Rfam assigns this 80-nucleotide sequence from Domibacillus mangrovi to the family "skipping-rope RNA". The match comes from Rfam's covariance-model search (60 bits). It is annotated as a small RNA.
[Rfam]
RNA sequence: GAUUUUUGAGGUGGGAAAGGUUCCCCACGCGCUACCUUCAGGUAGUUACCAGAGAUCAGGAUUGCCGCCCUGCUAAAAUC
Numbered sequence: 001g002a003u004u005u006u007u008g009a010g011g012u013g014g015g016a017a018a019g020g021u022u023c024c025c026c027a028c029g030c031g032c033u034a035c036c037u038u039c040a041g042g043u044a045g046u047u048a049c050c051a052g053a054g055a056u057c058a059g060g061a062u063u064g065c066c067g068c069c070c071u072g073c074u075a076a077a078a079u080c
Stems, first nucleotide, its partner, number of pairs: 001080006008073001011028005019066003030052001031046006057072004